A member of the RNA family "Group II catalytic intron D1-D4-3" from Alloiococcus otitis, 174 nucleotides long. Its family is annotated with Group II intron splicing in the Gene Ontology. A search with the family's covariance model found it, with a score of 140 bits. The organism belongs to Alloiococcus otitis, within Bacteria.
RNA sequence: UCCAUCGUGAGGUGGAAUCUGAAGGAAGCUGGAGGCAAACACUCGCACUGACGAACAGAAACUUCAUAUCAAGGCUGAUUUGAGAUGGAUGAGCUUGCAUAACAAAGUAAAGUCCAAUACUGCACAAGUCCCUUUCAGUAAAUGAAGCAGUGACAUGAGUGGAAGGUUGUCACA
Numbered sequence: 001u002c003c004a005u006c007g008u009g010a011g012g013u014g015g016a017a018u019c020u021g022a023a024g025g026a027a028g029c030u031g032g033a034g035g036c037a038a039a040c041a042c043u044c045g046c047a048c049u050g051a052c053g054a055a056c057a058g059a060a061a062c063u064u065c066a067u068a069u070c071a072a073g074g075c076u077g078a079u080u081u082g083a084g085a086u087g088g089a090u091g092a093g094c095u096u097g098c099a100u101a102a103c104a105a106a107g108u109a110a111a112g113u114c115c116a117a118u119a120c121u122g123c124a125c126a127a128g129u130c131c132c133u134u135u136c137a138g139u140a141a142a143u144g145a146a147g148c149a150g151u152g153a154c155a156u157g158a159g160u161g162g163a164a165g166g167u168u169g170u171c172a173c174a
Base pairs, nucleotide, nucleotide: 001016002015003014004013005012006011030172031171032170035167036166040161041160042159043158044157045156046152047151048150049149050148062147063146064145065144066143067142074139075138076137078135082132084130085129087115088114089113090112093108094107095106096105